This 135-nucleotide sequence from Vibrio genomosp. F6 belongs to the Rfam family "Gammaprotebacteria rimP leader".
On this family, see Naville and Gautheret, Genome Biol 2010: "Premature terminator analysis sheds light on a hidden world of bacterial transcriptional attenuation".
The family's RNA type in Rfam is cis-regulatory leader.
Its family is annotated with regulation of gene expression in the Gene Ontology.
The source organism's lineage runs through Bacteria, Pseudomonadati, Vibrionales, Vibrionaceae and Vibrio genomosp. F6.

Nucleotides: 135
Base pairs, nucleotide, nucleotide: 034054035053036052037051038050039049040048041047116128117127118126119125
Number, partner (000 for none) and nucleotide at each position: 001000c002000u003000a004000u005000a006000u007000a008000c009000u010000u011000a012000a013000c014000a015000c016000a017000u018000c019000a020000g021000g022000g023000u024000c025000c026000a027000g028000c029000a030000a031000c032000a033000u034054a035053a036052a037051c038050c039049u040048c041047g042000a043000u044000u045000u046000u047041c048040g049039g050038g051037g052036u053035u054034u055000u056000u057000u058000g059000u060000u061000a062000u063000c064000u065000g066000u067000a068000c069000u070000u071000u072000u073000c074000g075000a076000u077000u078000u079000u080000c081000g082000a083000a084000a085000u086000u087000g088000u089000a090000u091000g092000g093000g094000u095000a096000g097000u098000u099000u100000g101000c102000u103000u104000g105000g106000g107000a108000u109000u110000u111000a112000a113000a114000u115000u116128g117127g118126g119125c120000u121000c122000u123000g124000a125119g126118c127117c128116c129000u130000u131000u132000u133000u134000u135000u